Enterococcus sRNA 68 (Lacto-3 RNA): a 128-nucleotide sequence from Limosilactobacillus fermentum. By type it is a small RNA. A reference for the family is Innocenti et al. (2015), "Whole-genome mapping of 5' RNA ends in bacteria by tagged sequencing: a comprehensive view in Enterococcus faecalis", RNA.
[Rfam]
RNA sequence: UGCGAUGAGUCGAGAGGUCAGGGAACCGACCCUUAUUUGGUUCCCCCGUGCGAACGGAAAUGAUUCUCGAGUGGGGCACGUAACCUACCGGAUUGUAGGGUGCCUGGUCCAGCUGGUAGUGGACGACC
Numbered sequence: 001u002g003c004g005a006u007g008a009g010u011c012g013a014g015a016g017g018u019c020a021g022g023g024a025a026c027c028g029a030c031c032c033u034u035a036u037u038u039g040g041u042u043c044c045c046c047c048g049u050g051c052g053a054a055c056g057g058a059a060a061u062g063a064u065u066c067u068c069g070a071g072u073g074g075g076g077c078a079c080g081u082a083a084c085c086u087a088c089c090g091g092a093u094u095g096u097a098g099g100g101u102g103c104c105u106g107g108u109c110c111a112g113c114u115g116g117u118a119g120u121g122g123a124c125g126a127c128c
Stems, first nucleotide, its partner, number of pairs: 017064004021045009046057004075104005084099005116128001

Background: Taxonomically the source falls in Limosilactobacillus fermentum (Bacteria, Bacillati, Bacilli, Lactobacillaceae). Rfam's curators put it in the seed alignment.